[Rfam]
RNA sequence: UAUCUUUGCAGCCUGAUUGAAAAUCAGUCAGAUACAUAAAAAUGAUUUCUAAUAAUAUUAGCAUG
Numbered sequence: 001u002a003u004c005u006u007u008g009c010a011g012c013c014u015g016a017u018u019g020a021a022a023a024u025c026a027g028u029c030a031g032a033u034a035c036a037u038a039a040a041a042a043u044g045a046u047u048u049c050u051a052a053u054a055a056u057a058u059u060a061g062c063a064u065g
Base pairs, nucleotide, nucleotide: 014030015029016028017027018026019025